This 65-nucleotide RNA sequence from Haemonchus contortus belongs to the Rfam family "mir-5885 microRNA precursor family".
The family's consensus secondary structure was predicted with RNAalifold.
The organism belongs to Haemonchus, within Eukaryota.

RNA sequence: UAACAGGGUGUACGUGGUGGUCUGGUAAGUGUGUCGCUUAUGAGAUCACGCGUAUAUUCGCCGCG
Number, nucleotide and partner (000 for none) at each position: 001u000002a000003a000004c000005a000006g059007g058008g057009u056010g055011u054012a053013c052014g051015u050016g049017g000018u048019g047020g046021u045022c044023u043024g000025g041026u040027a039028a038029g037030u036031g000032u000033g000034u000035c000036g030037c029038u028039u027040a026041u025042g000043a023044g022045a021046u020047c019048a018049c016050g015051c014052g013053u012054a011055u010056a009057u008058u007059c006060g000061c000062c000063g000064c000065g000